RNA sequence: UGCGGGUAAAAGCAAAAUGUGACCGAUCUCGCUUUCAACUGCAGGCUAAGCUCAGUAUCAUCAGGAUUACAUGUACAACCCUCGCCGGUUUCGGUGAGGGUUUUUCUUUGUA
Numbered sequence: 001u002g003c004g005g006g007u008a009a010a011a012g013c014a015a016a017a018u019g020u021g022a023c024c025g026a027u028c029u030c031g032c033u034u035u036c037a038a039c040u041g042c043a044g045g046c047u048a049a050g051c052u053c054a055g056u057a058u059c060a061u062c063a064g065g066a067u068u069a070c071a072u073g074u075a076c077a078a079c080c081c082u083c084g085c086c087g088g089u090u091u092c093g094g095u096g097a098g099g100g101u102u103u104u105u106c107u108u109u110g111u112a
Stems, first nucleotide, its partner, number of pairs: 015035003019032004077102011
About this RNA: Enterobacteria rnk leader: a 112-nucleotide RNA from Cedecea neteri. On this family, see Naville and Gautheret, Genome Biol 2010: "Premature terminator analysis sheds light on a hidden world of bacterial transcriptional attenuation". The family's RNA type in Rfam is cis-regulatory leader. Its family is annotated with regulation of gene expression in the Gene Ontology. The source organism's lineage runs through Bacteria, Pseudomonadati, Pseudomonadota, Enterobacteriaceae and Cedecea.